[Rfam]
RNA sequence: UAAUCUAACUGAAAAGAGAGAUAUGCAGAAACAUACCUCCCUUUGUAGAACCGUUUUAAGACGGUAGCUUAAGAAUAAUAAAAAA
Numbered sequence: 001u002a003a004u005c006u007a008a009c010u011g012a013a014a015a016g017a018g019a020g021a022u023a024u025g026c027a028g029a030a031a032c033a034u035a036c037c038u039c040c041c042u043u044u045g046u047a048g049a050a051c052c053g054u055u056u057u058a059a060g061a062c063g064g065u066a067g068c069u070u071a072a073g074a075a076u077a078a079u080a081a082a083a084a085a
Stems, first nucleotide, its partner, number of pairs: 022035004050065006
RNA: RNA anti-toxin A
Organism: Vagococcus salmoninarum